RNA sequence: GUUCCCUAGGCAUAUCUCAGGUCCGCCGCAACUCCUGAGUCGCCCUGGGACGGCUGGUUCGGUGACGCACAGAGUGGCCUUGUUGUCGUUGUAUCCCGAACCAGCCACCUC
Numbered sequence: 001g002u003u004c005c006c007u008a009g010g011c012a013u014a015u016c017u018c019a020g021g022u023c024c025g026c027c028g029c030a031a032c033u034c035c036u037g038a039g040u041c042g043c044c045c046u047g048g049g050a051c052g053g054c055u056g057g058u059u060c061g062g063u064g065a066c067g068c069a070c071a072g073a074g075u076g077g078c079c080u081u082g083u084u085g086u087c088g089u090u091g092u093a094u095c096c097c098g099a100a101c102c103a104g105c106c107a108c109c110u111c
Stems, first nucleotide, its partner, number of pairs: 003050004009044002016039006052106011
Dot-bracket structure: ..((((..((.....((((((............))))))...))..)))).(((((((((((.................................))))))))))).....